[Rfam]
RNA sequence: CACUUAUCAAGAGCGGCUGAGGGAACAGGCCCUGUGAAGCCCGACAACCUGCGCGUUUGCGCAAGGUGCCAAAUCCUGCGGGUAACACCGGAAGAUAAGCU
Number, nucleotide and partner (000 for none) at each position: 001c000002a000003c099004u098005u097006a096007u095008c094009a000010a000011g000012a000013g042014c000015g041016g040017c039018u000019g000020a000021g032022g031023g030024a000025a000026c078027a077028g076029g075030c023031c022032c021033u000034g000035u000036g000037a000038a000039g017040c016041c015042c013043g070044a000045c068046a067047a000048c066049c065050u063051g062052c061053g060054c000055g000056u000057u000058u000059g000060c053061g052062c051063a050064a000065g049066g048067u046068g045069c000070c043071a000072a000073a000074u093075c029076c028077u027078g026079c090080g089081g088082g000083u000084a000085a000086c000087a000088c081089c080090g079091g000092a000093a074094g008095a007096u006097a005098a004099g003100c000101u000
About this RNA:
The family of this 101-nucleotide RNA sequence from Anaerofilum hominis is "SAM riboswitch aptamer (S box leader)". Clan: SAM clan.